RNA sequence: CGGCUGUAGCUAAAUUGAUUUACAGAGAGGUUUACUGGCCGCCCGUUGUGAGAUUCUAAAUCUCUGUCGACGGAUCUGCUUACCGAGCUUCUUACAUUU
Numbered sequence: 001c002g003g004c005u006g007u008a009g010c011u012a013a014a015u016u017g018a019u020u021u022a023c024a025g026a027g028a029g030g031u032u033u034a035c036u037g038g039c040c041g042c043c044c045g046u047u048g049u050g051a052g053a054u055u056c057u058a059a060a061u062c063u064c065u066g067u068c069g070a071c072g073g074a075u076c077u078g079c080u081u082a083c084c085g086a087g088c089u090u091c092u093u094a095c096a097u098u099u
Stems, first nucleotide, its partner, number of pairs: 025093008037080003041076001044073001045071004
Rfam assigns this 99-nucleotide RNA from Rosa chinensis to the family "Small nucleolar RNA snoR109".
Rfam 15.1 lists 680 matches to the family in 220 species.
A reference for the family is Marker et al. (2002), "Experimental RNomics: identification of 140 candidates for small non-messenger RNAs in the plant Arabidopsis thaliana", Curr Biol.
It scores 74 bits against the family's covariance model.
The family's consensus secondary structure was predicted with WAR.
Rfam classes the family as an H/ACA-box small nucleolar RNA.